[Rfam]
RNA sequence: CAGUUUUCGAGGCUUGUUUUAAGUUGCCUGCGGCUCGUACAUGGACACAGGCAGCUAAAGCAAGUCUGGAACGCUG
Numbered sequence: 001c002a003g004u005u006u007u008c009g010a011g012g013c014u015u016g017u018u019u020u021a022a023g024u025u026g027c028c029u030g031c032g033g034c035u036c037g038u039a040c041a042u043g044g045a046c047a048c049a050g051g052c053a054g055c056u057a058a059a060g061c062a063a064g065u066c067u068g069g070a071a072c073g074c075u076g
Base pairs, nucleotide, nucleotide: 003074004073006071007070008069010067011066012065013064014063015062016061017060018059019058020057022056023055024054025053026052027051028050029049030048032046
Background:
Shown here is a 76-nucleotide sequence from Oryzias latipes, a member of the family "mir-1788 microRNA precursor family". The organism belongs to Oryzias, within Eukaryota. The family's consensus secondary structure was predicted with RNAalifold.